[Rfam]
Notes:
Rfam assigns this 262-nucleotide RNA sequence from Cuscuta campestris to the family "RNase MRP". It scores 73 bits against the family's covariance model. NCBI's taxonomy places the organism under Eukaryota, Mesangiospermae, Gunneridae, Solanales, Cuscuta sect. Cleistogrammica. RNase MRP is an enzymatically active ribonucleoprotein with two distinct roles in eukaryotes. In mitochondria it plays a direct role in the initiation of mitochondrial DNA replication. The base pairs follow the family's consensus structure, which is taken from published work.
RNA sequence: CGACCGCGGGACGGCGUGAGCGGGUUAGGCUCAAUCUUUGUUAUUGGGCCGCGACCCAAGAAAGUCCCCGGGCCAUUUCUGCAGAGAUGCAGGCUCGGAAGCGAGUCCCCUUCGCGGGCCGGAUAACGAGACCAGAAUUGGUCUGGGCUGAGACAUGUGUGGAGCCGGACCUUGUUUAUCCGGCUGGAAGGUCCUUGGCCGAUUUUACAGUCAUUCACGUGGCCCUAUGGGCUAAUUGAACGGGGCUUACGUUCCUGCGGUC
Numbered sequence: 001c002g003a004c005c006g007c008g009g010g011a012c013g014g015c016g017u018g019a020g021c022g023g024g025u026u027a028g029g030c031u032c033a034a035u036c037u038u039u040g041u042u043a044u045u046g047g048g049c050c051g052c053g054a055c056c057c058a059a060g061a062a063a064g065u066c067c068c069c070g071g072g073c074c075a076u077u078u079c080u081g082c083a084g085a086g087a088u089g090c091a092g093g094c095u096c097g098g099a100a101g102c103g104a105g106u107c108c109c110c111u112u113c114g115c116g117g118g119c120c121g122g123a124u125a126a127c128g129a130g131a132c133c134a135g136a137a138u139u140g141g142u143c144u145g146g147g148c149u150g151a152g153a154c155a156u157g158u159g160u161g162g163a164g165c166c167g168g169a170c171c172u173u174g175u176u177u178a179u180c181c182g183g184c185u186g187g188a189a190g191g192u193c194c195u196u197g198g199c200c201g202a203u204u205u206u207a208c209a210g211u212c213a214u215u216c217a218c219g220u221g222g223c224c225c226u227a228u229g230g231g232c233u234a235a236u237u238g239a240a241c242g243g244g245g246c247u248u249a250c251g252u253u254c255c256u257g258c259g260g261u262c
Base pairs, nucleotide, nucleotide: 002262003261004260005259006258007257008256009255010254011253014220015219016218017217018216019215022057023056024055025054028050029049030048031047032046033045034044062248063247064246066245067244068243069242080091081090082089083088092107093106094105095104096103097102109191110190111189118184119183120182121181122180123179125176126175128173129172130171222232223231224230225229
Rfam classes the family as a ribozyme.